The record is a 196-nucleotide RNA sequence, which matches "RT-16 RNA" in Rfam.
RNA sequence: CCUAGCUAUACUUUAAAAUUAAUUCCUCUUGUUUUAAUUUAUAAAGUAUUCUGGGCCACACGCCAAUUUAUUAAUAUAUCAUUUAGAUUUAUUUUAAGUUAUAAAAUACAACUGCAACAUUAAGUAACUUUCGUGAAAUAUGAAGUGGUGGUGAAGGGUCUCUUGACUUUUUGAAAUGAUAAAUUGGCUAUCUCUU
Numbered sequence: 001c002c003u004a005g006c007u008a009u010a011c012u013u014u015a016a017a018a019u020u021a022a023u024u025c026c027u028c029u030u031g032u033u034u035u036a037a038u039u040u041a042u043a044a045a046g047u048a049u050u051c052u053g054g055g056c057c058a059c060a061c062g063c064c065a066a067u068u069u070a071u072u073a074a075u076a077u078a079u080c081a082u083u084u085a086g087a088u089u090u091a092u093u094u095u096a097a098g099u100u101a102u103a104a105a106a107u108a109c110a111a112c113u114g115c116a117a118c119a120u121u122a123a124g125u126a127a128c129u130u131u132c133g134u135g136a137a138a139u140a141u142g143a144a145g146u147g148g149u150g151g152u153g154a155a156g157g158g159u160c161u162c163u164u165g166a167c168u169u170u171u172u173g174a175a176a177u178g179a180u181a182a183a184u185u186g187g188c189u190a191u192c193u194c195u196u
Stems, first nucleotide, its partner, number of pairs: 001055005008049007062188010076161001078159003082155003111149005118142003127134002
Dot-bracket structure: (((((..(((((((............................))))))).)))))......((((((((((....(.(((.(((..........................(((((..(((......((....)).....)))..)))))...))).))).).................))))))))))........